About this RNA
Shown here is a 235-nucleotide sequence from Pelotomaculum isophthalicicum, a member of the family "BsrG".
RNA sequence: CACAACAGAAAGGCUCAGGGCGGUCGGCAUUCCCUCCGGAAGGAGGUGAUGCCUAUGGAAGUAUACCAGGCUUUGACGCUGAUGAUUUCAUUUGCGACAUUAGUCGUUUUGGUACUUUCUUUCCAUAACAGGAAAUAGACCGCUCCUGCCCAAGGAAUAACGGUCUAUUCCGUUUCUCCGAAGCCGACCGCCCAUAAAGCGGCUGUUGUGAGGAACCGUGUUUGCCGCAUGGUUC
Dot-bracket structure: (((((.((...((((.((((.(.(...((.((.((......)).))))........(((((((.......(............)........((.(...........).)).)))))))..................).)...)))).............(((......))).........))))..((((.......)))))).)))))..(((((((((.....)))))))))
Its family is annotated with autolysis and toxin activity in the Gene Ontology. Rfam's curators write: bsrE, bsrG and bsrH pair through intermolecular interactions with antisense sRNAs. They form type I toxin/antitoxin system that includes an mRNA encoding for a short, toxic peptide (bsrE, bsrG and bsrH) and an antitoxin that is comprised of an antisense RNA. bsrG encodes a 39-amino-acid toxin, and the 180 nucleotide antisense sRNA called SR4 acts as the antitoxin (they overlap by 123 nucleotides). SR4 interaction with the 3'UTR of bsrG RNA promotes bsrG degradation and inhibits its translation. BsrG interferes with cell envelope biosynthesis, causes membrane invaginations and delocalisation of the cell wall synthesis and initiates autolysis. bsrE RNA encodes 30 amino-acid toxin peptide. Its antitoxin gene, SR5 overlaps by 112 nucleotides at the 3' end of bsrE. SR5 also overlaps bsrG from nucleotide 163 to 52 (Rfam overlap check). The antitoxin SR5 promotes bsrE degradation but unlike SR4 it does not directly inhibits toxin mRNA translation.